[Rfam]
RNA sequence: UGGCUCAACAGGGACCUGGAAACGAGGGACUCCGUGAGGAAGAGGACGCCAAAGGACGGUCGACCGCUAACAAAGACAAAAGGAAUUAAACCGAUCACCGCGGGAACCUGCCGCGUCUGAAUCGAAAGGUAAGUGACUAGCUCGAAAUGGGACAAGAAUUAAGUCAACAUCAAAUAUAUGUAGGACAAUUAAAAGAGGCUUUAAAGAUACGAGGAGUAAAGGUUAAAGGUAAUGACUUGUUUAAAUUUUUUGAUUUUGUAAAAGAUACUUGCCCUU
Dot-bracket structure: ...(((...................)))....(.(.......).)............................................(((..(((.(((((.......)))))..)).)......)))..........((((...))))........((((((...............................))).)))......((((((((..((((((.......))))))......))))))))........((.(.(....).).))
Numbered sequence: 001u002g003g004c005u006c007a008a009c010a011g012g013g014a015c016c017u018g019g020a021a022a023c024g025a026g027g028g029a030c031u032c033c034g035u036g037a038g039g040a041a042g043a044g045g046a047c048g049c050c051a052a053a054g055g056a057c058g059g060u061c062g063a064c065c066g067c068u069a070a071c072a073a074a075g076a077c078a079a080a081a082g083g084a085a086u087u088a089a090a091c092c093g094a095u096c097a098c099c100g101c102g103g104g105a106a107c108c109u110g111c112c113g114c115g116u117c118u119g120a121a122u123c124g125a126a127a128g129g130u131a132a133g134u135g136a137c138u139a140g141c142u143c144g145a146a147a148u149g150g151g152a153c154a155a156g157a158a159u160u161a162a163g164u165c166a167a168c169a170u171c172a173a174a175u176a177u178a179u180g181u182a183g184g185a186c187a188a189u190u191a192a193a194a195g196a197g198g199c200u201u202u203a204a205a206g207a208u209a210c211g212a213g214g215a216g217u218a219a220a221g222g223u224u225a226a227a228g229g230u231a232a233u234g235a236c237u238u239g240u241u242u243a244a245a246u247u248u249u250u251u252g253a254u255u256u257u258g259u260a261a262a263a264g265a266u267a268c269u270u271g272c273c274c275u276u
Stems, first nucleotide, its partner, number of pairs: 004028003033045001035043001090130003095121001096119002099115005141151004160203003163199003210252008220238006261276002264273001266271001
This 276-nucleotide RNA from Macaca fascicularis belongs to the Rfam family "Mason-Pfizer monkey virus packaging signal".
For this family Rfam cites "Mutational analysis of the predicted secondary RNA structure of the Mason-Pfizer monkey virus packaging signal" (Mustafa et al., Virus Res, 2004).
Gene Ontology term of the family: viral genome packaging.
This family represents a group of sequences that are related to the Mason-Pfizer monkey virus (MPMV) packaging signal. The packaging signal is located in the 5' UTR and is required for specific RNA encapsidation.
The organism belongs to Macaca, within Eukaryota.
It is annotated as a cis-regulatory element.